This 142-nucleotide sequence from Jatropha curcas belongs to the Rfam family "small nucleolar RNA snoR134".
It is annotated as an H/ACA-box small nucleolar RNA.
Lineage of the source: Eukaryota > Streptophyta > Streptophytina > Pentapetalae > Jatropha.
The base pairs follow the family's consensus structure, which was predicted with RNAalifold.
On this family, see Chen and Wu, Nucleic Acids Res 2009: "Mining small RNA sequencing data: a new approach to identify small nucleolar RNAs in Arabidopsis".
The match comes from Rfam's covariance-model search (111 bits).

RNA sequence: CUGCACGAUGCCUCCCGGGCUUCUCUGAAUGUAUCAGUGACGAUGAAAGCCCCAAUGCACGUGCUAAAGUGAUGCCGUUUAGUGUUGCAGUUUGGCUUUUCUCUCUCUAGGGCCGAUCUGUGUCAAAUCAACGGUUAUAUCU
Numbered sequence: 001c002u003g004c005a006c007g008a009u010g011c012c013u014c015c016c017g018g019g020c021u022u023c024u025c026u027g028a029a030u031g032u033a034u035c036a037g038u039g040a041c042g043a044u045g046a047a048a049g050c051c052c053c054a055a056u057g058c059a060c061g062u063g064c065u066a067a068a069g070u071g072a073u074g075c076c077g078u079u080u081a082g083u084g085u086u087g088c089a090g091u092u093u094g095g096c097u098u099u100u101c102u103c104u105c106u107c108u109a110g111g112g113c114c115g116a117u118c119u120g121u122g123u124c125a126a127a128u129c130a131a132c133g134g135u136u137a138u139a140u141c142u
Stems, first nucleotide, its partner, number of pairs: 003064005010058002017052005022046002024043002074135006083125002086122005095113003